RNA sequence: AAACAGCAUGGUAACUGACGACAUUUGUGGAAUUAACCACAAGGGAGCUAUGCUUUUAUAGAGUCGGGUCGUCUGGGCAGAGAUA
Numbered sequence: 001a002a003a004c005a006g007c008a009u010g011g012u013a014a015c016u017g018a019c020g021a022c023a024u025u026u027g028u029g030g031a032a033u034u035a036a037c038c039a040c041a042a043g044g045g046a047g048c049u050a051u052g053c054u055u056u057u058a059u060a061g062a063g064u065c066g067g068g069u070c071g072u073c074u075g076g077g078c079a080g081a082g083a084u085a
Base pairs, nucleotide, nucleotide: 003056005054006053007052008051009050010049011048012047015044016043017073018072019071020070021069027040028039029038030037063078064077065076
Annotation
A member of the RNA family "ZMP/ZTP riboswitch aptamer (pfl RNA motif)" from Heyndrickxia sporothermodurans, 85 nucleotides long. Lineage of the source: Bacteria > Bacillati > Bacilli > Caryophanales > Heyndrickxia. Gene Ontology terms of the family: regulation of purine nucleotide biosynthetic process and one-carbon metabolic process.